[Rfam]
RNA sequence: CGACGUGGGUUACAAAGCAGUGGAGGGCAUACCGAGGACCCGUCACCUCGUUAAUCAAUGGGAAUGCAAUAACUGCUAACGACGAACGUUACGCACUGGCCGCUUAAUUGCGGCCGUCCUCGCACUGGCUCGCUGACGGGCUAGGGUCGCAAGACCACGCGAGGUCAUUUACGUCAGAUAAGCUCCGGAAGGGUCACGAAGCCGGGGACGAAAACCUAGUGACUCGCCGUCGUAGAGCGUGUUCGUCCGCGAUGCGCCGGUUAAAUCAAAUGACAGAACUAAGUAUGUAGAACUCUCUGUGGAGGGCUUACGGACGCGGGUUCGAUUCCCGCCGGCUCCACCA
Numbered sequence: 001c002g003a004c005g006u007g008g009g010u011u012a013c014a015a016a017g018c019a020g021u022g023g024a025g026g027g028c029a030u031a032c033c034g035a036g037g038a039c040c041c042g043u044c045a046c047c048u049c050g051u052u053a054a055u056c057a058a059u060g061g062g063a064a065u066g067c068a069a070u071a072a073c074u075g076c077u078a079a080c081g082a083c084g085a086a087c088g089u090u091a092c093g094c095a096c097u098g099g100c101c102g103c104u105u106a107a108u109u110g111c112g113g114c115c116g117u118c119c120u121c122g123c124a125c126u127g128g129c130u131c132g133c134u135g136a137c138g139g140g141c142u143a144g145g146g147u148c149g150c151a152a153g154a155c156c157a158c159g160c161g162a163g164g165u166c167a168u169u170u171a172c173g174u175c176a177g178a179u180a181a182g183c184u185c186c187g188g189a190a191g192g193g194u195c196a197c198g199a200a201g202c203c204g205g206g207g208a209c210g211a212a213a214a215c216c217u218a219g220u221g222a223c224u225c226g227c228c229g230u231c232g233u234a235g236a237g238c239g240u241g242u243u244c245g246u247c248c249g250c251g252a253u254g255c256g257c258c259g260g261u262u263a264a265a266u267c268a269a270a271u272g273a274c275a276g277a278a279c280u281a282a283g284u285a286u287g288u289a290g291a292a293c294u295c296u297c298u299g300u301g302g303a304g305g306g307c308u309u310a311c312g313g314a315c316g317c318g319g320g321u322u323c324g325a326u327u328c329c330c331g332c333c334g335g336c337u338c339c340a341c342c343a
Base pairs, nucleotide, nucleotide: 004312005311006310007309008308009307010306011305017300018299019298020297022296023295024294025293028287029286030285031284032283033050034049035048036047037046039062040061041060042059043058095117096116098114100112118164119163120162121161122160123159126143127142128141129140133177134176135175136174137173138172183207184206185205186204187203188202193223194222195221196220197219226261227260228259229258231256232255233254234253237250238249239248241279242278243277244276245274246273247272316332317331318330319329320328
A member of the RNA family "transfer-messenger RNA" from Cupriavidus necator, 343 nucleotides long. Rfam's curators put it in the seed alignment. Pairs were carried over by alignment from the consensus structure, which is taken from published work. Rfam classes the family as a non-coding RNA gene.